[Rfam]
RNA: SAH (S-adenosyl-L-homocysteine) riboswitch aptamer
Organism: Thioalkalivibrio sulfidiphilus
RNA sequence: CGUGUCGAGGAGCGCUGCAGCGGGUUUAUGCCCCGUCAGGCUCGGCACGGCGCAACAACCGUAGUAACGGCGCUCAUCCGAC
Numbered sequence: 001c002g003u004g005u006c007g008a009g010g011a012g013c014g015c016u017g018c019a020g021c022g023g024g025u026u027u028a029u030g031c032c033c034c035g036u037c038a039g040g041c042u043c044g045g046c047a048c049g050g051c052g053c054a055a056c057a058a059c060c061g062u063a064g065u066a067a068c069g070g071c072g073c074u075c076a077u078c079c080g081a082c
Stems, first nucleotide, its partner, number of pairs: 002048007021035004026030001